Shown here is a 110-nucleotide RNA sequence from Propithecus coquereli, a member of the family "Y RNA".
The family's RNA type in Rfam is non-coding RNA gene.
The literature on the family includes a 2007 paper in Theory Biosci by Mosig et al., "Evolution of the vertebrate Y RNA cluster".
It scores 58 bits against the family's covariance model.
Taxonomically the source falls in Propithecus (Eukaryota, Amniota, Mammalia, Euarchontoglires).
The family's consensus secondary structure is taken from published work.
RNA sequence: GGCUGGUCCAGAGGCAGUGAAUUACCUCAAUUAAUUGUUCACAGUCAGUUACAGAUCAAACUCAUUCUACUCUUUCCCCUCUUCUCACUACUGCAAUUGACUAGUCUUAA
Numbered sequence: 001g002g003c004u005g006g007u008c009c010a011g012a013g014g015c016a017g018u019g020a021a022u023u024a025c026c027u028c029a030a031u032u033a034a035u036u037g038u039u040c041a042c043a044g045u046c047a048g049u050u051a052c053a054g055a056u057c058a059a060a061c062u063c064a065u066u067c068u069a070c071u072c073u074u075u076c077c078c079c080u081c082u083u084c085u086c087a088c089u090a091c092u093g094c095a096a097u098u099g100a101c102u103a104g105u106c107u108u109a110a
Stems, first nucleotide, its partner, number of pairs: 001106008010098002014094002016089005044071001047068002